[Rfam]
Small nucleolar RNA SNORD102: a 71-nucleotide RNA sequence from Bos taurus. The sequence is in the family's curated seed alignment. The family has 11 seed sequences and 443 matches in Rfam 15.1. Gene Ontology terms of the family: nucleolus and RNA processing. It is annotated as a C/D-box small nucleolar RNA. Taxonomically the source falls in Bos (Eukaryota, Vertebrata, Mammalia, Theria).
RNA sequence: AGCUUAAUGAUGAUUGUCUUUUUGAUUGCUUAAAGCAACGUGAAAAUGACAUUUCACCGGCUCUGAGAGCU
Numbered sequence: 001a002g003c004u005u006a007a008u009g010a011u012g013a014u015u016g017u018c019u020u021u022u023u024g025a026u027u028g029c030u031u032a033a034a035g036c037a038a039c040g041u042g043a044a045a046a047u048g049a050c051a052u053u054u055c056a057c058c059g060g061c062u063c064u065g066a067g068a069g070c071u
Stems, first nucleotide, its partner, number of pairs: 001071005